[Rfam]
RNA sequence: UCAUCCACCACGGGAGAACCGGCGAAAGUGCCGGUGCCGAAGGAGCAACCGCCCCGGAAACUCUCAGGCCAAAGGACCGUCGUGGUGUC
Numbered sequence: 001u002c003a004u005c006c007a008c009c010a011c012g013g014g015a016g017a018a019c020c021g022g023c024g025a026a027a028g029u030g031c032c033g034g035u036g037c038c039g040a041a042g043g044a045g046c047a048a049c050c051g052c053c054c055c056g057g058a059a060a061c062u063c064u065c066a067g068g069c070c071a072a073a074g075g076a077c078c079g080u081c082g083u084g085g086u087g088u089c
Stems, first nucleotide, its partner, number of pairs: 006084003010080004019034004036069003039065002043063003049057002